[Rfam]
Nucleotides: 587
Stems, first nucleotide, its partner, number of pairs: 001478002003475003007472007015462002019426005024318001026316008034307002040055004064302007077124002081119003086103007105116004127291002130289004137284001138280003141276001143274002148187006154163003166179004193268004198236007208225002212223003239259002242256005322378006335366003340359002345354003385416001390411007432454007481586001483583001486579002491573004496568003501563005509555004517548001519546004525541003530537002
Number, partner (000 for none) and nucleotide at each position: 001478u002477g003475a004474c005473g006000g007472g008471g009470g010469c011468c012467c013466g014000c015462a016461c017000a018000a019426g020425c021424g022423g023422u024318g025000g026316a027315g028314u029313a030312u031311g032310u033309g034307g035306u036000u037000u038000a039000a040055u041054u042053c043052g044000a045000c046000g047000c048000a049000a050000c051000g052043c053042g054041a055040a056000g057000a058000a059000c060000c061000u062000u063000a064302c065301c066300a067299g068298g069297u070296c071000u072000u073000g074000a075000c076000a077124u078123u079000g080000a081119u082118g083117g084000a085000c086103g087102a088101a089100a090099c091098a092097a093000g094000a095000g096000a097092u098091u099090g100089u101088u102087u103086u104000u105116c106115u107114c108113c109000u110000u111000c112000g113108g114107g115106a116105g117083c118082c119081a120000g121000a122000a123078a124077a125000c126000a127291g128290g129000u130289g131288g132287u133286g134000c135000a136000c137284g138280g139279c140278u141276g142000u143274c144273g145000u146000c147000a148187g149186c150185u151184c152183g153182u154163g155162u156161c157000g158000u159000g160000a161156g162155a163154u164000g165000u166179u167178g168177g169176g170000u171000u172000a173000a174000g175000u176169c177168c178167c179166g180000c181000a182153a183152c184151g185150a186149g187148c188000g189000c190000a191000a192000c193268c194267c195266c196265u197000a198236u199235c200234u201233u202232a203231u204230g205000u206000u207000g208225c209224c210000a211000g212223c213222a214221c215000g216000u217000a218000a219000a220000g221214g222213u223212g224209g225208g226000a227000a228000c229000u230204c231203a232202u233201g234200a235199g236198a237000g238000a239259c240258u241000g242256c243255c244254g245253c246252a247000g248000a249000c250000a251000a252246u253245g254244c255243g256242g257000a258240g259239g260000a261000a262000g263000g264000c265196g266195g267194g268193g269000a270000u271000g272000a273144c274143g275000u276141c277000a278140a279139g280138u281000c282000a283000u284137c285000a286133u287132g288131c289130c290128c291127c292000u293000u294000a295000u296070g297069a298068c299067c300066u301065g302064g303000g304000c305000u306035a307034c308000a309033c310032a311031c312030g313029u314028a315027c316026u317000a318024c319000a320000a321000u322378g323377g324376g325375c326374u327373u328000u329000a330000a331000u332000a333000g334000a335366g336365g337364g338000a339000a340359g341358c342000g343000a344000a345354g346353c347352c348000g349000c350000g351000a352347g353346g354345u355000g356000g357000a358341g359340c360000a361000a362000a363000c364337c365336c366335c367000a368000g369000a370000a371000a372000c373327a374326a375325g376324c377323u378322c379000u380000c381000a382000g383000u384000u385416c386000g387000g388000a389000u390411c391410g392409u393408a394407g395406g396405c397000u398000g399000c400000a401000a402000c403000u404000c405396g406395c407394c408393u409392a410391c411390g412000u413000g414000a415000a416385g417000u418000c419000g420000g421000a422023a423022u424021c425020g426019c427000u428000a429000g430000u431000a432454a433453u434452c435451g436450c437449a438448g439000g440000u441000c442000a443000g444000c445000a446000u447000a448438c449437u450436g451435c452434g453433g454432u455000g456000a457000a458000u459000a460000c461016g462015u463000u464000c465000c466013c467012g468011g469010g470009c471008c472007u473005u474004g475003u476000a477002c478001a479000c480000a481586c482000c483583g484000c485000c486579c487578g488000u489000c490000a491573c492572a493571c494570c495000a496568c497567g498566a499000a500000a501563g502562u503561c504560g505559g506000a507000a508000g509555u510554a511553c512552c513000c514000a515000a516000a517548g518000c519546c520545g521544g522543u523000g524000g525541g526540g527539u528000a529000a530537c531536c532000u533000u534000c535000g536531g537530g538000a539527g540526c541525c542000a543522g544521c545520c546519g547000u548517c549000u550000a551000a552512g553511g554510u555509a556000a557000a558000g559505u560504c561503g562502a563501u564000g565000a566498u567497u568496g569000g570494g571493g572492u573491g574000a575000a576000g577000u578487c579486g580000u581000a582000a583483c584000a585000a586481g587000g